Shown here is a 100-nucleotide RNA sequence from Paracoccus aestuarii, a member of the family "TPP riboswitch aptamer (THI element)".
Gene Ontology term of the family: thiamine pyrophosphate binding.
The base pairs follow the family's consensus structure, which is taken from published work.
The organism belongs to Paracoccus, within Bacteria.

RNA sequence: GGGGCCACCUCGGGGUGCCCCAUCGGGCUGAGACGCUGCAGGCGGACCCGUUGAACCUGAUCCGGCUCACACCGGCGGAGGGAAGGUCACGCGCCCCUUU
Number, nucleotide and partner (000 for none) at each position: 001g000002g000003g000004g000005c000006c000007a087008c086009c085010u084011c050012g049013g048014g047015g000016u044017g028018c027019c026020c025021c000022a000023u000024c000025g020026g019027g018028c017029u000030g000031a000032g000033a000034c000035g043036c042037u041038g000039c000040a000041g037042g036043c035044g016045g000046a000047c014048c013049c012050g011051u000052u000053g000054a000055a000056c081057c080058u079059g000060a000061u000062c075063c074064g073065g072066c000067u000068c000069a000070c000071a000072c065073c064074g063075g062076c000077g000078g000079a058080g057081g056082g000083a000084a010085g009086g008087u007088c000089a000090c000091g000092c000093g000094c000095c000096c000097c000098u000099u000100u000